[Rfam]
Shown here is a 321-nucleotide RNA sequence from Anolis carolinensis, a member of the family "Nuclear RNase P".
Rfam links the family to the GO terms ribonuclease P activity, ribonuclease P complex and tRNA processing.
The family's RNA type in Rfam is ribozyme.
Ribonuclease P (RNase P) is a ubiquitous endoribonuclease, found in archaea, bacteria and eukarya as well as chloroplasts and mitochondria. Its best characterised activity is the generation of mature 5'-ends of tRNAs by cleaving the 5'-leader elements of precursor-tRNAs. Cellular RNase Ps are ribonucleoproteins. RNA from bacterial RNase Ps retains its catalytic activity in the absence of the protein subunit, i.e. it is a ribozyme.
RNA sequence: CUGGGAGGAAGCUCUCCGAAGAGGCCACGUGCUGAGUGUCCGUCACUCUCGUUGCUCCUCUGGGAAGGUCUGAGAGAAGGGCCGCUAUUUCCGCCUUAGCAGGGCGCCACCUUCGGAAGGUGGGUGAGUUCCCAGCGAUACGGGCCUCCGGCAACGCCCCAGAUUGAGGCAGGAGAAGCGGGCACGGGAUUCACUCCUUCCCGCGGAUGCCUCCGCGGCCUGCUUGGGGUUUGGGAACGACUCACGGCCGGCAAAUAUGAGUACAAUGGGCAGAGGUGAAGCCAUGGCUUCAUAACCCAAUUCAGACUAGUCUCCACCCAG
Numbered sequence: 001c002u003g004g005g006a007g008g009a010a011g012c013u014c015u016c017c018g019a020a021g022a023g024g025c026c027a028c029g030u031g032c033u034g035a036g037u038g039u040c041c042g043u044c045a046c047u048c049u050c051g052u053u054g055c056u057c058c059u060c061u062g063g064g065a066a067g068g069u070c071u072g073a074g075a076g077a078a079g080g081g082c083c084g085c086u087a088u089u090u091c092c093g094c095c096u097u098a099g100c101a102g103g104g105c106g107c108c109a110c111c112u113u114c115g116g117a118a119g120g121u122g123g124g125u126g127a128g129u130u131c132c133c134a135g136c137g138a139u140a141c142g143g144g145c146c147u148c149c150g151g152c153a154a155c156g157c158c159c160c161a162g163a164u165u166g167a168g169g170c171a172g173g174a175g176a177a178g179c180g181g182g183c184a185c186g187g188g189a190u191u192c193a194c195u196c197c198u199u200c201c202c203g204c205g206g207a208u209g210c211c212u213c214c215g216c217g218g219c220c221u222g223c224u225u226g227g228g229g230u231u232u233g234g235g236a237a238c239g240a241c242u243c244a245c246g247g248c249c250g251g252c253a254a255a256u257a258u259g260a261g262u263a264c265a266a267u268g269g270g271c272a273g274a275g276g277u278g279a280a281g282c283c284a285u286g287g288c289u290u291c292a293u294a295a296c297c298c299a300a301u302u303c304a305g306a307c308u309a310g311u312c313u314c315c316a317c318c319c320a321g
Stems, first nucleotide, its partner, number of pairs: 001321003007315003012275004016270002020061005034048005070305005080249004092106005107123006124245007144230005276293007